[Rfam]
RNA sequence: AGAGGUCACAAGUUUGAGGACAUAGCAGAAGCACUCAUGGUGUGGCCCUGUCAGACUACAAUGUAUCUGUGAAUUUUGCU
Numbered sequence: 001a002g003a004g005g006u007c008a009c010a011a012g013u014u015u016g017a018g019g020a021c022a023u024a025g026c027a028g029a030a031g032c033a034c035u036c037a038u039g040g041u042g043u044g045g046c047c048c049u050g051u052c053a054g055a056c057u058a059c060a061a062u063g064u065a066u067c068u069g070u071g072a073a074u075u076u077u078g079c080u
Base pairs, nucleotide, nucleotide: 016048018047019046021044024080025079026078027077028076029075030074031043032042033041052069053068054067055066
The record is an 80-nucleotide RNA sequence from Alligator sinensis, which matches "Mammalian CPEB3 ribozyme" in Rfam. A search with the family's covariance model found it, with a score of 37 bits. Lineage of the source: Eukaryota > Metazoa > Craniata > Sarcopterygii > Alligator.